[Rfam]
RNA sequence: AUUGGCUAUGGCGACAUGGUGCCAAAGACCUAUUUAGGACAGAUGAUUGGCUCGGUGUGCGCUGUGGCGGGAGUGCUCACCAUUGCCUUGCCUGUUCCCGUCAUAGUGAGUAAC
Numbered sequence: 001a002u003u004g005g006c007u008a009u010g011g012c013g014a015c016a017u018g019g020u021g022c023c024a025a026a027g028a029c030c031u032a033u034u035u036a037g038g039a040c041a042g043a044u045g046a047u048u049g050g051c052u053c054g055g056u057g058u059g060c061g062c063u064g065u066g067g068c069g070g071g072a073g074u075g076c077u078c079a080c081c082a083u084u085g086c087c088u089u090g091c092c093u094g095u096u097c098c099c100g101u102c103a104u105a106g107u108g109a110g111u112a113a114c
Stems, first nucleotide, its partner, number of pairs: 002113001004111001007108003011104001013102003018097002021095002037077002049063003